RNA sequence: UAUCGAGUAUAGCUUAGCAAACUAUACACUUGCCGCCAUGGCUGAACACUAUGUAGCCUGAGUACAGGAUGACCGACCAGUAAGAGUGUUCAUAAGUCCCCCAG
Numbered sequence: 001u002a003u004c005g006a007g008u009a010u011a012g013c014u015u016a017g018c019a020a021a022c023u024a025u026a027c028a029c030u031u032g033c034c035g036c037c038a039u040g041g042c043u044g045a046a047c048a049c050u051a052u053g054u055a056g057c058c059u060g061a062g063u064a065c066a067g068g069a070u071g072a073c074c075g076a077c078c079a080g081u082a083a084g085a086g087u088g089u090u091c092a093u094a095a096g097u098c099c100c101c102c103a104g
Stems, first nucleotide, its partner, number of pairs: 007027006040099002042096002044091007058080003063075001067074002
RNA: cow-rumen-2 RNA